Rfam assigns this 75-nucleotide sequence from Alligator mississippiensis to the family "Mammalian CPEB3 ribozyme". A search with the family's covariance model found it, with a score of 41 bits. Pairs were carried over by alignment from the consensus structure, which is taken from published work.
RNA sequence: UUGCAAGUUCAAAGCCAUAGCAGAAGUGCUCCUGGCAUGGCCCUGUCAGAGUCCAACGAAUCUGUGAAUUCUGCU
Number, nucleotide and partner (000 for none) at each position: 001u000002u000003g000004c000005a000006a000007g000008u000009u000010c000011a000012a000013a000014g041015c040016c039017a000018u000019a075020g074021c073022a072023g071024a070025a069026g038027u037028g036029c000030u000031c000032c000033u000034g000035g000036c028037a027038u026039g016040g015041c014042c000043c000044u000045g000046u000047c064048a063049g062050a061051g000052u059053c058054c000055a000056a000057c000058g053059a052060a000061u050062c049063u048064g047065u000066g000067a000068a000069u025070u024071c023072u022073g021074c020075u019